[Rfam]
RNA sequence: UAUCUGGUUGAUCCUGCCAGUAUUAUAUGCUGAUGUUAAAGAUUAAGCCAUGCAUGUGUAAGUAUAAAGACCAAGUAGGAUGAAACUGCGGACGGCUCAUUAUAACAGUAAUAGUUUCUUUGGUUAGUAAAAUACAAGGAUAGCUUUGUGAAUGAUAAAGAUAAUACUUGAGACGAUCCAGUUUGUAUUAGUACAAAAUGGCCAAUUUAUUUAAUGAAUUGAGAAAUGACAUUCUAAGUGAGUUAGGAUGCCACGACAAUUGUAGAACACACAGUGUUUAACAAGUAACCAAUGAGAAUUUCUGAUCUAUCAAUCAGUUGGUAGUAUCGAGGACUACCAAGAUUAUAACGGAUAACGAGGAAUUGGGGUUCGACAUCGGAGAGGGAGCUUUACAGAUGGCUACCACUUCUAAGGAAGGCAGCAGGCGCGUAAAUUACCCACUUUCGAAUUGAAGAGGUAGUGACGACACAUAACUCUAGAGUUGAGUAAAAUCAAUUCUUGAAGGAAUGAGUAGGAGGUAAAUUCUCCUACGAAAUCAAUUGGAGGGCAAGUCUGGUGCCAGCAGCCGCGGUAAUUCCAGCUCCAAUAGUGUAUAUUAAA
Dot-bracket structure: ...(((((.......))))).(.((((((((..((((..((.....(((.(((..((...(((....(............)...)))))......(((.......(((..((..((....((((..........((((.....((((((.....))))))......))))........((.((..((....))..)).))....((((........(.((....(((...)))..)).)......))))..........((((..((((.....))))..))))...))))...).)))..))).(((....(((..((((((((.......)))))))))))......)))...(((.((((....))))....)))))).((.(((..........))).)).((((....))))...)))))).).....(.(((...(((((...))))).)))).)...)))).....((..((((((((......))))))))...))......((..(((.......)))..))........((((((.......((((.....((....)).......)))))))))).)))))))).)...
This 600-nucleotide part of an RNA from Entamoeba nuttalli belongs to the Rfam family "Eukaryotic small subunit ribosomal RNA". Pairs were carried over by alignment from the consensus structure, which is taken from published work. Lineage of the source: Eukaryota > Evosea > Archamoebae > Mastigamoebida > Entamoeba.